A member of the RNA family "malK-III RNA", 94 nucleotides long. Pairs were carried over by alignment from the consensus structure, which is taken from published work.
RNA sequence: AGAGUCGGCACCUCGUAUGGGGCCCGUCCGCGCCGCCAGGCGGCCGUGAUGCAAGGGUCCGCGAUGACCCGACCGGUGCGAGGAGAAACGCAUG
Numbered sequence: 001a002g003a004g005u006c007g008g009c010a011c012c013u014c015g016u017a018u019g020g021g022g023c024c025c026g027u028c029c030g031c032g033c034c035g036c037c038a039g040g041c042g043g044c045c046g047u048g049a050u051g052c053a054a055g056g057g058u059c060c061g062c063g064a065u066g067a068c069c070c071g072a073c074c075g076g077u078g079c080g081a082g083g084a085g086a087a088a089c090g091c092a093u094g
Stems, first nucleotide, its partner, number of pairs: 014063003020060006026050003033043004